[Rfam]
RNA sequence: AUACCGCGCUUUUAACGACACACACGCUUCGACACAUACGGUAGGGUCCCAAUAAGGGUGCUGUAUGGGAAGCGUGGAGGCAUAAC
Numbered sequence: 001a002u003a004c005c006g007c008g009c010u011u012u013u014a015a016c017g018a019c020a021c022a023c024a025c026g027c028u029u030c031g032a033c034a035c036a037u038a039c040g041g042u043a044g045g046g047u048c049c050c051a052a053u054a055a056g057g058g059u060g061c062u063g064u065a066u067g068g069g070a071a072g073c074g075u076g077g078a079g080g081c082a083u084a085a086c
Stems, first nucleotide, its partner, number of pairs: 023076008035067009048058003
This 86-nucleotide sequence from Legionella massiliensis belongs to the Rfam family "t44 RNA".
The organism belongs to Legionella, within Bacteria.
Pairs were carried over by alignment from the consensus structure, which was predicted with LocARNA.
About the family: This family consists of a number of bacterial RNA genes of between 135 and 170 bases in length. The t44 gene has been identified in several species of enteric bacteria but homologs have also been identified in Pseudomonas and Coxiella species. The t44 gene is found between the map and rpsB genes in all species in the full alignment apart from Shigella flexneri.